[Rfam]
RNA sequence: UGGGUUAGAACUCACCUCAGGCCGGCACCGCAAUGGUGCCUGGCGAAACCCGCCACGCCGGCAGCGGGUUUCACUGGCAGCCUAGCUGCCCGGUCUCGCCAUGAGGCCACCAGGAACACCAGUCAAC
Numbered sequence: 001u002g003g004g005u006u007a008g009a010a011c012u013c014a015c016c017u018c019a020g021g022c023c024g025g026c027a028c029c030g031c032a033a034u035g036g037u038g039c040c041u042g043g044c045g046a047a048a049c050c051c052g053c054c055a056c057g058c059c060g061g062c063a064g065c066g067g068g069u070u071u072c073a074c075u076g077g078c079a080g081c082c083u084a085g086c087u088g089c090c091c092g093g094u095c096u097c098g099c100c101a102u103g104a105g106g107c108c109a110c111c112a113g114g115a116a117c118a119c120c121a122g123u124c125a126a127c
Stems, first nucleotide, its partner, number of pairs: 021044003024040006047070007076090006092108006
Rfam assigns this 127-nucleotide RNA sequence from Pseudomonas sp. BAY1663 to the family "rmf RNA". NCBI's taxonomy places the organism under Bacteria, Pseudomonadati, Gammaproteobacteria, Pseudomonadaceae, Pseudomonas. It is annotated as a cis-regulatory element.